The record is a 371-nucleotide RNA from Phyllostomus discolor, which matches "ncRNA Repressor of NFAT (nuclear factor of activated T cells)" in Rfam. The literature on the family includes a 2005 paper in Science by Willingham et al., "A strategy for probing the function of noncoding RNAs finds a repressor of NFAT".

RNA sequence: GGGAGCAAAUGGCGCCAGGAACGUCGCAACUUUUCCUUUGUAUAUUACAUUAAUCCAUAUAAGAAAAUCUCUUUUAAUGAGGAGUGAUGUAGUUACAAACUCUCCAGAGCCGUAAUUAGAGCAAACUAAUUGAAGUUGUGUUUUGACACACUUUCCGAAUUCACGGGUGCCGCAUGACAUAUUCACAACAGCGCCGCUGCACAGCCACGGCGACGGCAAAAGCAUCAGGCUAAUAACGCUCAUUUGCAUUCUUAUCAUGCCGGCAGCUCUCCCUUAAACACUGUUUCUACUACGGCUCCUUCGCUGUAAGUUUCCACGGAAAGAUAUUAACAGUAAUUAUUAGUACUUUGGUGGAAUUUUAAUGUUAAAGA
Numbered sequence: 001g002g003g004a005g006c007a008a009a010u011g012g013c014g015c016c017a018g019g020a021a022c023g024u025c026g027c028a029a030c031u032u033u034u035c036c037u038u039u040g041u042a043u044a045u046u047a048c049a050u051u052a053a054u055c056c057a058u059a060u061a062a063g064a065a066a067a068u069c070u071c072u073u074u075u076a077a078u079g080a081g082g083a084g085u086g087a088u089g090u091a092g093u094u095a096c097a098a099a100c101u102c103u104c105c106a107g108a109g110c111c112g113u114a115a116u117u118a119g120a121g122c123a124a125a126c127u128a129a130u131u132g133a134a135g136u137u138g139u140g141u142u143u144u145g146a147c148a149c150a151c152u153u154u155c156c157g158a159a160u161u162c163a164c165g166g167g168u169g170c171c172g173c174a175u176g177a178c179a180u181a182u183u184c185a186c187a188a189c190a191g192c193g194c195c196g197c198u199g200c201a202c203a204g205c206c207a208c209g210g211c212g213a214c215g216g217c218a219a220a221a222g223c224a225u226c227a228g229g230c231u232a233a234u235a236a237c238g239c240u241c242a243u244u245u246g247c248a249u250u251c252u253u254a255u256c257a258u259g260c261c262g263g264c265a266g267c268u269c270u271c272c273c274u275u276a277a278a279c280a281c282u283g284u285u286u287c288u289a290c291u292a293c294g295g296c297u298c299c300u301u302c303g304c305u306g307u308a309a310g311u312u313u314c315c316a317c318g319g320a321a322a323g324a325u326a327u328u329a330a331c332a333g334u335a336a337u338u339a340u341u342a343g344u345a346c347u348u349u350g351g352u353g354g355a356a357u358u359u360u361a362a363u364g365u366u367a368a369a370g371a
Stems, first nucleotide, its partner, number of pairs: 048364005054355005061348003069084006089340008100109003119298004132154004137150005165273003169267002195212005215261004229247002232244003

It is annotated as a non-coding RNA gene. Rfam 15.1 lists 522 matches to the family in 519 species. NCBI's taxonomy places the organism under Eukaryota, Opisthokonta, Teleostomi, Amniota, Phyllostomus.